[Rfam]
RNA sequence: UUCUCAGUCCACUAUAAGUAUGAACGCCAAGCAUAUUGUACAAAGUUUGGUGUUCUACCUUACAGUGAAUUGCGUA
Numbered sequence: 001u002u003c004u005c006a007g008u009c010c011a012c013u014a015u016a017a018g019u020a021u022g023a024a025c026g027c028c029a030a031g032c033a034u035a036u037u038g039u040a041c042a043a044a045g046u047u048u049g050g051u052g053u054u055c056u057a058c059c060u061u062a063c064a065g066u067g068a069a070u071u072g073c074g075u076a
Stems, first nucleotide, its partner, number of pairs: 006071003010067004015062003025052008
Shown here is a 76-nucleotide RNA sequence from Pararge aegeria, a member of the family "mir-971 microRNA precursor family". Taxonomically the source falls in Pararge aegeria (Eukaryota, Bilateria, Amphiesmenoptera, Pararge). Its family is annotated with miRNA-mediated post-transcriptional gene silencing and RISC complex in the Gene Ontology.